[Rfam]
RNA: Small nucleolar RNA SNORA11
RNA sequence: AGGGUGUGCUCAGAGCAGGGGGCCUGAGGAAUGGCUCCUCUGUUUAUAACACACCCAAUACGAACCUGGUCAUGAUGUGAGGAGGGCUACAAAGUAUGUUGCUGUCCUUCCCACACAUGUCCUACAAUU
Numbered sequence: 001a002g003g004g005u006g007u008g009c010u011c012a013g014a015g016c017a018g019g020g021g022g023c024c025u026g027a028g029g030a031a032u033g034g035c036u037c038c039u040c041u042g043u044u045u046a047u048a049a050c051a052c053a054c055c056c057a058a059u060a061c062g063a064a065c066c067u068g069g070u071c072a073u074g075a076u077g078u079g080a081g082g083a084g085g086g087c088u089a090c091a092a093a094g095u096a097u098g099u100u101g102c103u104g105u106c107c108u109u110c111c112c113a114c115a116c117a118u119g120u121c122c123u124a125c126a127a128u129u
Base pairs, nucleotide, nucleotide: 002056003055004054005053006052007051008050013045014044015043016042017041018040019039020038021037022035023034024033069122076115077114078113081111082110085103086102089099090098091097